A member of the RNA family "t44 RNA" from Ketobacter sp., 104 nucleotides long.
[Rfam]
RNA sequence: UCAAUUGAAACCAUAAACCACACAUAUACCGACACAUGGAUCAGGGUGCUUGAACAAGGCAAAUAGCCAUUCAGGUUGAUUCAUGGGGUAUAUGGAGGCUUAAC
Numbered sequence: 001u002c003a004a005u006u007g008a009a010a011c012c013a014u015a016a017a018c019c020a021c022a023c024a025u026a027u028a029c030c031g032a033c034a035c036a037u038g039g040a041u042c043a044g045g046g047u048g049c050u051u052g053a054a055c056a057a058g059g060c061a062a063a064u065a066g067c068c069a070u071u072c073a074g075g076u077u078g079a080u081u082c083a084u085g086g087g088g089u090a091u092a093u094g095g096a097g098g099c100u101u102a103a104c
Stems, first nucleotide, its partner, number of pairs: 023094008035085009048076007
Description:
It is annotated as a small RNA. The organism belongs to Ketobacter, within Bacteria.